[Rfam]
RNA: Streptomyces-metK RNA
RNA sequence: GGGAGACACCUGGUCCGGCGGCGCGUACCGACCGAUAAACUGGUCGCGGACCACCACGCCGGGCGCAGCUCCCGGCCGGGUCCGUCAAUGCUCAGCCAGCAGCCGCUGCAACCCCAGGGAG
Numbered sequence: 001g002g003g004a005g006a007c008a009c010c011u012g013g014u015c016c017g018g019c020g021g022c023g024c025g026u027a028c029c030g031a032c033c034g035a036u037a038a039a040c041u042g043g044u045c046g047c048g049g050a051c052c053a054c055c056a057c058g059c060c061g062g063g064c065g066c067a068g069c070u071c072c073c074g075g076c077c078g079g080g081u082c083c084g085u086c087a088a089u090g091c092u093c094a095g096c097c098a099g100c101a102g103c104c105g106c107u108g109c110a111a112c113c114c115c116a117g118g119g120a121g
Base pairs, nucleotide, nucleotide: 048083049082050081051080052079059075060074061073062072063071097108098107099106100105